A member of the RNA family "Group II catalytic intron D1-D4-1" from Paremcibacter congregatus, 84 nucleotides long.
RNA sequence: CUACCGAUGCUGCGAAGUAUUGGGAUGGGAUUAUAGAAGUCAGCAGAGGCCAUAGUAGCGGGGCUAACCACCUUCGCGAAGGGC
Numbered sequence: 001c002u003a004c005c006g007a008u009g010c011u012g013c014g015a016a017g018u019a020u021u022g023g024g025a026u027g028g029g030a031u032u033a034u035a036g037a038a039g040u041c042a043g044c045a046g047a048g049g050c051c052a053u054a055g056u057a058g059c060g061g062g063g064c065u066a067a068c069c070a071c072c073u074u075c076g077c078g079a080a081g082g083g084c
Base pairs, nucleotide, nucleotide: 001027004023005022006021007020008019009018010017011016040047041046049084050083051082058077059076060075061074062073063072
The match comes from Rfam's covariance-model search (68 bits).